[Rfam]
The record is an 87-nucleotide sequence from Texcoconibacillus texcoconensis, which matches "c-di-GMP-I riboswitch aptamer" in Rfam. The family's consensus secondary structure is taken from published work.
Nucleotides: 087
Base pairs, nucleotide, nucleotide: 012037013036017032018031019030020029021028022027040081041080042079043078047077048076049073050072051071056068057067058066059065
Number, partner (000 for none) and nucleotide at each position: 001000u002000c003000a004000a005000u006000a007000u008000a009000u010000g011000g012037g013036c014000a015000a016000a017032c018031g019030g020029c021028u022027u023000g024000a025000a026000a027022a028021a029020g030019u031018c032017g033000g034000a035000c036013g037012c038000a039000a040081a041080g042079c043078u044000u045000a046000a047077g048076g049073g050072g051071c052000u053000a054000g055000a056068g057067c058066c059065a060000a061000c062000c063000a064000a065059u066058g067057g068056u069000a070000u071051g072050c073049c074000a075000g076048c077047c078043a079042g080041c081040u082000g083000c084000a085000u086000c087000u